[Rfam]
RNA sequence: GGAAGUGUGUUCUUUAGUGUGAUGUUACAACUGUUUAUAGAUCACUAGCCCUCGUUAGAAGGUCUACAGCACGUGACGUCACGCGCUCGUUGCCAGGCAACGCCUCUUGUAAUGUGCGCCGCGGACGCUCGCCCGCGCGGCUGCGACGGACCAGUGGCGCACGUUCCUUGGGCUGCCUUCCUGAACCUUACGCGGUUUUAGUUAACUCGUUAGCUUAGCUCCGGUUAAAUUGAGCACUUCCAUACCAUGGCGGCGAGAAUACUCGAUUGCCAGUUUUUUG
Numbered sequence: 001g002g003a004a005g006u007g008u009g010u011u012c013u014u015u016a017g018u019g020u021g022a023u024g025u026u027a028c029a030a031c032u033g034u035u036u037a038u039a040g041a042u043c044a045c046u047a048g049c050c051c052u053c054g055u056u057a058g059a060a061g062g063u064c065u066a067c068a069g070c071a072c073g074u075g076a077c078g079u080c081a082c083g084c085g086c087u088c089g090u091u092g093c094c095a096g097g098c099a100a101c102g103c104c105u106c107u108u109g110u111a112a113u114g115u116g117c118g119c120c121g122c123g124g125a126c127g128c129u130c131g132c133c134c135g136c137g138c139g140g141c142u143g144c145g146a147c148g149g150a151c152c153a154g155u156g157g158c159g160c161a162c163g164u165u166c167c168u169u170g171g172g173c174u175g176c177c178u179u180c181c182u183g184a185a186c187c188u189u190a191c192g193c194g195g196u197u198u199u200a201g202u203u204a205a206c207u208c209g210u211u212a213g214c215u216u217a218g219c220u221c222c223g224g225u226u227a228a229a230u231u232g233a234g235c236a237c238u239u240c241c242a243u244a245c246c247a248u249g250g251c252g253g254c255g256a257g258a259a260u261a262c263u264c265g266a267u268u269g270c271c272a273g274u275u276u277u278u279u280g
Stems, first nucleotide, its partner, number of pairs: 001241008019082005031069003037065001040064004045058003249271005
RNA: Arthropod 7SK RNA